The family of this 120-nucleotide RNA from Gordonia insulae is "SAM (S-adenosyl methionine) riboswitch aptamer".
It scores 108 bits against the family's covariance model.
Its Rfam clan is "SAM clan".
[Rfam]
RNA sequence: GGUCAUGAGCAUCAGCGCAAAGCCCCGGCUUGCUGAUCGGCAACCCUCCAACCGCGGUGGGGUGCUCCGGGUGAUGACCGGGUUGAGGAACGCAUACGCGUUUCCCGGCAAGCGCGGGUC
Numbered sequence: 001g002g003u004c005a006u007g008a009g010c011a012u013c014a015g016c017g018c019a020a021a022g023c024c025c026c027g028g029c030u031u032g033c034u035g036a037u038c039g040g041c042a043a044c045c046c047u048c049c050a051a052c053c054g055c056g057g058u059g060g061g062g063u064g065c066u067c068c069g070g071g072u073g074a075u076g077a078c079c080g081g082g083u084u085g086a087g088g089a090a091c092g093c094a095u096a097c098g099c100g101u102u103u104c105c106c107g108g109c110a111a112g113c114g115c116g117g118g119u120c
Stems, first nucleotide, its partner, number of pairs: 001079004009038001011037006021030002039066003044062003048057002082109004087104007